Purine riboswitch aptamer: a 104-nucleotide RNA from Paenibacillus protaetiae. Rfam's curators write: Riboswitches are metabolite binding domains within certain messenger RNAs that serve as precision sensors for their corresponding targets. NCBI's taxonomy places the organism under Bacteria, Bacillati, Bacillota, Bacilli, Paenibacillus. Its family is annotated with purine nucleobase biosynthetic process in the Gene Ontology.
Nucleotides: 104
Base pairs, nucleotide, nucleotide: 018090019089020088021087022086023085024084025083029049031047032046033045034044035043058080059079060078061077062076063075064074
Number, partner (000 for none) and nucleotide at each position: 001000a002000a003000a004000g005000g006000c007000g008000g009000g010000c011000a012000u013000a014000u015000a016000a017000c018090u019089g020088c021087u022086c023085a024084u025083a026000u027000a028000a029049u030000u031047a032046u033045g034044g035043g036000a037000a038000u039000a040000a041000g042000g043035c044034c045033c046032a047031u048000u049029a050000g051000u052000u053000u054000c055000u056000a057000c058080c059079g060078g061077a062076u063075g064074a065000c066000c067000a068000u069000u070000g071000c072000a073000a074064u075063u076062a077061u078060c079059c080058g081000a082000c083025u084024a085023u086022g087021a088020g089019c090018g091000a092000g093000a094000c095000c096000g097000c098000a099000a100000u101000c102000c103000g104000c